[Rfam]
RNA sequence: UGCGAUCUGCUGCUGAAUUUUUGCUUGUGCAAAAUACGGGGGAACCAAAAACAGGGGUGAAUUCGAUAAUUCGAUAGGGCGAUUACCUUCGGCCCGAAUCCGUCAGCUAACCUCGGAAGCUAGGAAGGGAAAAUGC
Numbered sequence: 001u002g003c004g005a006u007c008u009g010c011u012g013c014u015g016a017a018u019u020u021u022u023g024c025u026u027g028u029g030c031a032a033a034a035u036a037c038g039g040g041g042g043a044a045c046c047a048a049a050a051a052c053a054g055g056g057g058u059g060a061a062u063u064c065g066a067u068a069a070u071u072c073g074a075u076a077g078g079g080c081g082a083u084u085a086c087c088u089u090c091g092g093c094c095c096g097a098a099u100c101c102g103u104c105a106g107c108u109a110a111c112c113u114c115g116g117a118a119g120c121u122a123g124g125a126a127g128g129g130a131a132a133a134u135g136c
Stems, first nucleotide, its partner, number of pairs: 012120003019034006037115005046054001055101003063074004077095004
This 136-nucleotide sequence from Alkalibacter saccharofermentans belongs to the Rfam family "c-di-AMP riboswitch aptamer (ydaO/yuaA leader)". It scores 90 bits against the family's covariance model.